A member of the RNA family "c-di-AMP riboswitch aptamer (ydaO/yuaA leader)" from Syntrophus aciditrophicus, 134 nucleotides long.
RNA sequence: UAAUGCAUGGCGCUUAAUCCUCGAUUCAAGAGGAGCGGGGGACCCGUUCUCCUGGGGCGUAUCGCCAUUUGGCGUAGGGCACCUCUUCGGCCCGAGCCCGUCAGCUAACCUCGCAGGCAUCGAUGAGGGGACUC
Number, nucleotide and partner (000 for none) at each position: 001u000002a000003a000004u000005g000006c000007a000008u000009g000010g000011c000012g118013c117014u116015u000016a000017a000018u034019c033020c032021u031022c030023g000024a000025u000026u000027c000028a000029a000030g022031a021032g020033g019034a018035g114036c113037g112038g111039g110040g109041g000042a000043c000044c000045c054046g053047u000048u000049c000050u000051c000052c000053u046054g045055g099056g098057g097058c000059g000060u000061a000062u000063c074064g073065c072066c071067a000068u000069u000070u000071g066072g065073c064074g063075u000076a000077g093078g092079g091080c090081a000082c000083c000084u000085c000086u000087u000088c000089g000090g080091c079092c078093c077094g000095a000096g000097c057098c056099c055100g000101u000102c000103a000104g000105c000106u000107a000108a000109c040110c039111u038112c037113g036114c035115a000116g014117g013118c012119a000120u000121c000122g000123a000124u000125g000126a000127g000128g000129g000130g000131a000132c000133u000134c000
The sequence is in the family's curated seed alignment. This family represents a conserved RNA structure found upstream of the ydaO and yuaA genes in Bacillus subtilis and related genes in other bacteria. The ydaO/yuaA element is thought to act as a genetic 'off' switch for the ydaO and yuaA genes in its native state.